[Rfam]
DUF3800-IX RNA: a 69-nucleotide RNA from Cutibacterium granulosum. By type it is a small RNA. NCBI's taxonomy places the organism under Bacteria, Actinomycetota, Actinomycetes, Propionibacteriales, Cutibacterium granulosum. Pairs were carried over by alignment from the consensus structure, which is taken from published work.
RNA sequence: ACCCUCGGUCCGAAGAGUUACCAGAGGUGGCGCUCCGUCCGCAACGGGCGGAUAGGGCCGAGGGUCGUA
Numbered sequence: 001a002c003c004c005u006c007g008g009u010c011c012g013a014a015g016a017g018u019u020a021c022c023a024g025a026g027g028u029g030g031c032g033c034u035c036c037g038u039c040c041g042c043a044a045c046g047g048g049c050g051g052a053u054a055g056g057g058c059c060g061a062g063g064g065u066c067g068u069a
Stems, first nucleotide, its partner, number of pairs: 001065011017031006034052005